[Rfam]
Nucleotides: 067
Stems, first nucleotide, its partner, number of pairs: 015056009
Number, partner (000 for none) and nucleotide at each position: 001000g002000a003000a004000u005000u006000u007000u008000g009000a010000u011000u012000a013000a014000c015056c016055c017054u018053u019052c020051c021050u022049g023048g024000u025000u026000u027000c028000a029000a030000g031000c032000c033000c034000a035000c036000u037000u038000a039000c040000a041000c042000a043000a044000u045000u046000u047000c048023u049022c050021a051020g052019g053018g054017a055016g056015g057000c058000a059000a060000g061000u062000g063000g064000g065000a066000a067000g